Shown here is an 81-nucleotide sequence from Vibrio rumoiensis, a member of the family "RpsF leader". The match comes from Rfam's covariance-model search (39 bits). Its family is annotated with negative regulation of translation and protein binding in the Gene Ontology. The pairing is the family consensus, mapped onto this sequence. The literature on the family includes a 2014 paper in RNA by Fu et al., "Bacterial RNA motif in the 5' UTR of rpsF interacts with an S6:S18 complex". NCBI's taxonomy places the organism under Bacteria, Pseudomonadati, Pseudomonadota, Vibrionaceae, Vibrio rumoiensis. Conserved and widely distributed to many bacterial species RNA structure.
RNA sequence: UCUUAAUUUAUUUUCGUUCCUUGCUUCCUCCGGAUGGCCGAGCCCAUGUGGAAGCUAAUAAUCCGUAAGGAGCAACCUAUG
Numbered sequence: 001u002c003u004u005a006a007u008u009u010a011u012u013u014u015c016g017u018u019c020c021u022u023g024c025u026u027c028c029u030c031c032g033g034a035u036g037g038c039c040g041a042g043c044c045c046a047u048g049u050g051g052a053a054g055c056u057a058a059u060a061a062u063c064c065g066u067a068a069g070g071a072g073c074a075a076c077c078u079a080u081g
Stems, first nucleotide, its partner, number of pairs: 016073007023055006032043001